[Rfam]
RNA: MIR9563 microRNA precursor family
RNA sequence: GAAAUAUAAGAACCCGUCUCUUAACUUUUAACUAAAAAAACUAAGAACCGGUUCUUAAAUAUUUAAGAACCGGUUUUUAAAACUAAGAUAUUUAAGAACCGGUUCAUAGUUUGUUUUAGUUAAAAGUUAAGAGACGGGUUCUUAUAUUUC
Numbered sequence: 001g002a003a004a005u006a007u008a009a010g011a012a013c014c015c016g017u018c019u020c021u022u023a024a025c026u027u028u029u030a031a032c033u034a035a036a037a038a039a040a041c042u043a044a045g046a047a048c049c050g051g052u053u054c055u056u057a058a059a060u061a062u063u064u065a066a067g068a069a070c071c072g073g074u075u076u077u078u079a080a081a082a083c084u085a086a087g088a089u090a091u092u093u094a095a096g097a098a099c100c101g102g103u104u105c106a107u108a109g110u111u112u113g114u115u116u117u118a119g120u121u122a123a124a125a126g127u128u129a130a131g132a133g134a135c136g137g138g139u140u141c142u143u144a145u146a147u148u149u150c
Stems, first nucleotide, its partner, number of pairs: 001150037039112001041109003045105019